RNA sequence: GGAAGUAUUGAGCAAUUGGCUGGCUCGCCUGACUGUAAAUCAGGUCUCGCAAGAGCAUGUAGGUUCGAGUCCUACUACUUCCA
Number, nucleotide and partner (000 for none) at each position: 001g082002g081003a080004a079005g078006u077007a076008u000009u000010g026011a025012g024013c023014a000015a000016u000017u000018g000019g000020c000021u000022g000023g013024c012025u011026c010027g000028c044029c043030u042031g041032a040033c000034u000035g000036u000037a000038a000039a000040u032041c031042a030043g029044g028045u000046c000047u000048c000049g000050c000051a000052a000053g000054a000055g000056c000057a000058u000059g075060u074061a073062g072063g071064u000065u000066c000067g000068a000069g000070u000071c063072c062073u061074a060075c059076u007077a006078c005079u004080u003081c002082c001083a000